[Rfam]
RNA sequence: GUGGCAUAGGGAUGAACAAGCCCCUAGCAGUUUAUCAUCUAGCUGUAAUCGUUCAGCUGUAAUGAUGUUCUGUAUUAGCUGAUCAUUAAGGAUGAAACAUGA
Dot-bracket structure: ..................................(((((.............(((((((................)))))))........))))).......
Numbered sequence: 001g002u003g004g005c006a007u008a009g010g011g012a013u014g015a016a017c018a019a020g021c022c023c024c025u026a027g028c029a030g031u032u033u034a035u036c037a038u039c040u041a042g043c044u045g046u047a048a049u050c051g052u053u054c055a056g057c058u059g060u061a062a063u064g065a066u067g068u069u070c071u072g073u074a075u076u077a078g079c080u081g082a083u084c085a086u087u088a089a090g091g092a093u094g095a096a097a098c099a100u101g102a
Stems, first nucleotide, its partner, number of pairs: 035095005053082007
Small nucleolar RNA snoR99: a 102-nucleotide sequence from Dioscorea zingiberensis.
The family's consensus secondary structure was predicted with WAR.
Rfam links the family to the GO terms nucleolus and RNA processing.
The literature on the family includes a 2002 paper in Curr Biol by Marker et al., "Experimental RNomics: identification of 140 candidates for small non-messenger RNAs in the plant Arabidopsis thaliana".
The source organism's lineage runs through Eukaryota, Embryophyta, Magnoliopsida, Liliopsida and Dioscorea.
By type it is an H/ACA-box small nucleolar RNA.